c-di-GMP-II-GAG riboswitch aptamer: an 84-nucleotide sequence. The literature on the family includes a 2017 paper in Proc Natl Acad Sci U S A by Weinberg et al., "Bioinformatic analysis of riboswitch structures uncovers variant classes with altered ligand specificity". Clan: c-di-GMP_II riboswitch clan. Rfam links the family to the GO terms regulation of gene expression and cyclic-di-GMP binding.
[Rfam]
RNA sequence: UCAUCGGCGGGAAGCGAAGAAGCUCGUCCUGUACCCGGGCACCUGGGACGAGCGGAGCCAGUGGUGCGACCGACCCGAAGCACG
Numbered sequence: 001u002c003a004u005c006g007g008c009g010g011g012a013a014g015c016g017a018a019g020a021a022g023c024u025c026g027u028c029c030u031g032u033a034c035c036c037g038g039g040c041a042c043c044u045g046g047g048a049c050g051a052g053c054g055g056a057g058c059c060a061g062u063g064g065u066g067c068g069a070c071c072g073a074c075c076c077g078a079a080g081c082a083c084g
Stems, first nucleotide, its partner, number of pairs: 001084001005080001008077004014058002022053008037071002039067005